A member of the RNA family "SAM/SAH riboswitch aptamer" from Thalassococcus profundi, 48 nucleotides long.
The source organism's lineage runs through Bacteria, Pseudomonadota, Rhodobacterales, Roseobacteraceae and Thalassococcus.
A reference for the family is Weickhmann et al. (2019), "The structure of the SAM/SAH-binding riboswitch", Nucleic Acids Res.
The family's consensus secondary structure is taken from published work.

RNA sequence: UCCCUGCCACAACGGCUUCCUGGCGUGGCGGGCGAACCCAAUGGAGCG
Number, nucleotide and partner (000 for none) at each position: 001u000002c000003c000004c031005u030006g029007c028008c027009a026010c025011a000012a000013c022014g021015g047016c046017u045018u000019c044020c043021u014022g013023g000024c000025g010026u009027g008028g007029c006030g005031g004032g000033c000034g000035a000036a000037c000038c000039c000040a000041a000042u000043g020044g019045a017046g016047c015048g000